[Rfam]
RNA sequence: ACGGCAUCCCCGGGGGGCCGCUGACGCGCGGCUGAGAGGUGGGCAGCAGCCCAUGACCCGCUGAACCUGAUCCGGCUUAUACCGGCGUAGGGAGGGUCCGCGGCUGGCCC
Numbered sequence: 001a002c003g004g005c006a007u008c009c010c011c012g013g014g015g016g017g018c019c020g021c022u023g024a025c026g027c028g029c030g031g032c033u034g035a036g037a038g039g040u041g042g043g044c045a046g047c048a049g050c051c052c053a054u055g056a057c058c059c060g061c062u063g064a065a066c067c068u069g070a071u072c073c074g075g076c077u078u079a080u081a082c083c084g085g086c087g088u089a090g091g092g093a094g095g096g097u098c099c100g101c102g103g104c105u106g107g108c109c110c
Base pairs, nucleotide, nucleotide: 008096009095010094011060012059013058014057016054017032018031019030020029021028040053041052042051043050044049066091067090068089069088072085073084074083075082
The record is a 110-nucleotide sequence from Sphingomonas sp. Leaf198, which matches "TPP riboswitch aptamer (THI element)" in Rfam. Rfam describes the family as follows. Vitamin B(1) in its active form thiamin pyrophosphate (TPP) is an essential coenzyme that is synthesised by coupling of pyrimidine and thiazole moieties in bacteria. The match comes from Rfam's covariance-model search (67 bits).